This 84-nucleotide RNA sequence from Scyliorhinus torazame belongs to the Rfam family "mir-143 microRNA precursor family".

[Rfam]
RNA sequence: CGUGAAUCAGCCAGAGGUGCAGUGCUGCAUCUCUGGUCAGUUGUGAGUCUGAGAUGAAGCACUGUAGCUCUGGAGGAUGAACAC
Numbered sequence: 001c002g003u004g005a006a007u008c009a010g011c012c013a014g015a016g017g018u019g020c021a022g023u024g025c026u027g028c029a030u031c032u033c034u035g036g037u038c039a040g041u042u043g044u045g046a047g048u049c050u051g052a053g054a055u056g057a058a059g060c061a062c063u064g065u066a067g068c069u070c071u072g073g074a075g076g077a078u079g080a081a082c083a084c
Base pairs, nucleotide, nucleotide: 011073012072013071016068018066019065020064021063022062023061024060025059026058028056029055030054031053032052033051035049036048037046038045
It scores 96 bits against the family's covariance model. Rfam 15.1 lists 657 matches to the family in 637 species. The source organism's lineage runs through Eukaryota, Chordata, Craniata, Scyliorhinidae and Scyliorhinus.